[Rfam]
RNA sequence: CUGCAUGUUUGUACUCUGGGUUUGUCUCUCUUGAUUUCUGUGGAGAUGACAAGUUAAACAACAUGCUAAAGUAACACUUGAGGAGUUAACAGGGCCACCAGUCUCUCAAGGUCAGACUGAGUGGUAGUAUAAUACUCCGACACUA
Numbered sequence: 001c002u003g004c005a006u007g008u009u010u011g012u013a014c015u016c017u018g019g020g021u022u023u024g025u026c027u028c029u030c031u032u033g034a035u036u037u038c039u040g041u042g043g044a045g046a047u048g049a050c051a052a053g054u055u056a057a058a059c060a061a062c063a064u065g066c067u068a069a070a071g072u073a074a075c076a077c078u079u080g081a082g083g084a085g086u087u088a089a090c091a092g093g094g095c096c097a098c099c100a101g102u103c104u105c106u107c108a109a110g111g112u113c114a115g116a117c118u119g120a121g122u123g124g125u126a127g128u129a130u131a132a133u134a135c136u137c138c139g140a141c142a143c144u145a
Base pairs, nucleotide, nucleotide: 003066004065005064006063007062008061028045029044030043031042082138083137084136085135094125095124098121099119100118101117102116103115104114